RNA sequence: ACGUCCUGAAAACGAAACGAAACUGAUUCAUUGAAAAGAGAUUUCGAAUCGUUUAUCAGGAUGUUG
Numbered sequence: 001a002c003g004u005c006c007u008g009a010a011a012a013c014g015a016a017a018c019g020a021a022a023c024u025g026a027u028u029c030a031u032u033g034a035a036a037a038g039a040g041a042u043u044u045c046g047a048a049u050c051g052u053u054u055a056u057c058a059g060g061a062u063g064u065u066g
Stems, first nucleotide, its partner, number of pairs: 001064009010054006018046005023040002